Rfam assigns this 71-nucleotide RNA from Galemys pyrenaicus to the family "GAIT element". The family's RNA type in Rfam is cis-regulatory element. The match comes from Rfam's covariance-model search (45 bits). From the family's description: This family represents a cis-acting element in the 3'-UTR of the ceruloplasmin (Cp) gene called gamma interferon inhibitor of translation (GAIT).
RNA sequence: GUGUGUGAAACUGGUGAAUAGAAUGUUUACUUUGGAAUGGCCAUAAGUAUUAAAAAAGACUGAAAACUUAA
Numbered sequence: 001g002u003g004u005g006u007g008a009a010a011c012u013g014g015u016g017a018a019u020a021g022a023a024u025g026u027u028u029a030c031u032u033u034g035g036a037a038u039g040g041c042c043a044u045a046a047g048u049a050u051u052a053a054a055a056a057a058g059a060c061u062g063a064a065a066a067c068u069u070a071a
Stems, first nucleotide, its partner, number of pairs: 002070002005067002010061001012059001022051006033043003